[Rfam]
RNA sequence: UAUCGACUUCAGGGCAGGGUGAAAGUCCCUACCGGUGGUACAGCCCACGAGCCGAGAGGCCGAUUCGGUGAAAUUCCGAAGCCGACAGUAUAGUCUGGAUGAAAGAAGUGAAUG
Dot-bracket structure: ..(..(((((......(((.......))).[[((((((....[[))))..(((....)))...(((((.......)))))]])).(((....]]))).......)))))..)..

Overview
This 114-nucleotide sequence from Frisingicoccus caecimuris belongs to the Rfam family "FMN riboswitch aptamer (RFN element)". A reference for the family is Winkler et al. (2002), "An mRNA structure that controls gene expression by binding FMN", Proc Natl Acad Sci U S A. From the family's description: The RFN element is a highly conserved domain that is found frequently in the 5'-untranslated regions of prokaryotic mRNAs that encode for flavin mononucleotide (FMN) biosynthesis and transport proteins. This element is a metabolite-dependent riboswitch that directly binds FMN in the absence of proteins. In Bacillus subtilis, the riboswitch most likely controls gene expression by causing premature transcription termination within the 5' untranslated region of the ribDEAHT operon and precluding access to the ribosome-binding site of ypaA mRNA.The FMN riboswitch structure, reported in present an FMN-bound six-stem junction, adopts a butterfly-like scaffold, stapled together by opposingly directed but nearly identically folded peripheral domains. The source organism's lineage runs through Bacteria, Bacillota, Lachnospirales, Lachnospiraceae and Frisingicoccus. The match comes from Rfam's covariance-model search (116 bits). The family's consensus secondary structure is taken from published work.